Rfam assigns this 91-nucleotide RNA from Albula goreensis to the family "let-7 microRNA precursor family".
Pairs were carried over by alignment from the consensus structure, which was predicted with RNAalifold.
The family is grouped with related families in Rfam's "let-7 microRNA precursor clan".
It scores 66 bits against the family's covariance model.
Rfam describes the family as follows. This family represents the microRNAs (miRNA) let-7 and mir-98. let-7 was identified from a study of developmental timing in C. elegans, and was later shown to be part of a much larger class of non-coding RNAs termed miRNAs.
Lineage of the source: Eukaryota > Deuterostomia > Actinopterygii > Teleostei > Albula.
RNA sequence: GUGUGGUGAGGUAGUAAGUUGUGUUGUUCUUGGGGACUGGGAUAGAGUGCCCCCUACUGGAGAUAACUAUACAACUUACUGCCUUCCUCAG
Dot-bracket structure: .((.((.(((((((((((((((((.((....((((..............)))).(......)...)).))))))))))))))))))).)).